The record is a 335-nucleotide part of an RNA from Mesonia phycicola, which matches "Bacterial large subunit ribosomal RNA" in Rfam. A search with the family's covariance model found it, with a score of 2745 bits. The family has 102 seed sequences and 51,934 matches in Rfam 15.1.

[Rfam]
RNA sequence: GAUAAUGCGGGCGAGAAACCCGCACACCGAAAGACUAAGGUUUCCUCAGCUAUGCUAAUCAGCUGAGGGUUAGUCGGGACCUAAGGCGAACCCGAAUGGGGUAGUCGAUGGACAAGCAGUUAAUAUUCUGCUACCUGCUUUACAAUAAAAGUGACGGAGGCAUAAACUUGGUGCGUACUGACGGAAUAGUACGUUGAAGUAACCGAAAGGUUACGAUAGUACACUUAAGCUACGGCGGCGGUGAUAAUCCAGGGGCGUGACUUCCAAGAAAAGCGAGUAAAGCAGCCCGUACCCUAAACCGACACAGGUAGUUGGGAUGAGAAUUCUAAGGUGCU
Numbered sequence: 001g002a003u004a005a006u007g008c009g010g011g012c013g014a015g016a017a018a019c020c021c022g023c024a025c026a027c028c029g030a031a032a033g034a035c036u037a038a039g040g041u042u043u044c045c046u047c048a049g050c051u052a053u054g055c056u057a058a059u060c061a062g063c064u065g066a067g068g069g070u071u072a073g074u075c076g077g078g079a080c081c082u083a084a085g086g087c088g089a090a091c092c093c094g095a096a097u098g099g100g101g102u103a104g105u106c107g108a109u110g111g112a113c114a115a116g117c118a119g120u121u122a123a124u125a126u127u128c129u130g131c132u133a134c135c136u137g138c139u140u141u142a143c144a145a146u147a148a149a150a151g152u153g154a155c156g157g158a159g160g161c162a163u164a165a166a167c168u169u170g171g172u173g174c175g176u177a178c179u180g181a182c183g184g185a186a187u188a189g190u191a192c193g194u195u196g197a198a199g200u201a202a203c204c205g206a207a208a209g210g211u212u213a214c215g216a217u218a219g220u221a222c223a224c225u226u227a228a229g230c231u232a233c234g235g236c237g238g239c240g241g242u243g244a245u246a247a248u249c250c251a252g253g254g255g256c257g258u259g260a261c262u263u264c265c266a267a268g269a270a271a272a273g274c275g276a277g278u279a280a281a282g283c284a285g286c287c288c289g290u291a292c293c294c295u296a297a298a299c300c301g302a303c304a305c306a307g308g309u310a311g312u313u314g315g316g317a318u319g320a321g322a323a324u325u326c327u328a329a330g331g332u333g334c335u
Stems, first nucleotide, its partner, number of pairs: 006024006025333004033313004039293002044068006053061002075289004080111002085106003089102001091100003115132005135285009151274002156264004167253005173194006195238001199233003206226002299308002315327003